[Rfam]
Notes: This 109-nucleotide RNA sequence from Macleaya cordata belongs to the Rfam family "Small nucleolar RNA snoR31/Z110/Z27". Gene Ontology terms of the family: nucleolus and RNA processing. Rfam classes the family as a C/D-box small nucleolar RNA. For this family Rfam cites "Identification of 66 box C/D snoRNAs in Arabidopsis thaliana: extensive gene duplications generated multiple isoforms predicting new ribosomal RNA 2'-O-methylation sites" (Barneche et al., J Mol Biol, 2001). The base pairs follow the family's consensus structure, which was predicted with PFOLD.
RNA sequence: GUCAUCAAGUGAUGAGACUUGAAAGCAUCUCUUAGGACACCUUCCUACACAGCAUUGCUUAAUAGCUUUUACUGUGGAUGAGAAAGGCAUUUCUAUUUCUGAUGAUGAU
Numbered sequence: 001g002u003c004a005u006c007a008a009g010u011g012a013u014g015a016g017a018c019u020u021g022a023a024a025g026c027a028u029c030u031c032u033u034a035g036g037a038c039a040c041c042u043u044c045c046u047a048c049a050c051a052g053c054a055u056u057g058c059u060u061a062a063u064a065g066c067u068u069u070u071a072c073u074g075u076g077g078a079u080g081a082g083a084a085a086g087g088c089a090u091u092u093c094u095a096u097u098u099c100u101g102a103u104g105a106u107g108a109u
Base pairs, nucleotide, nucleotide: 001109002108003107004106005105006104007103
This family contains several related snoRNAs including R31, Z27 and Z110.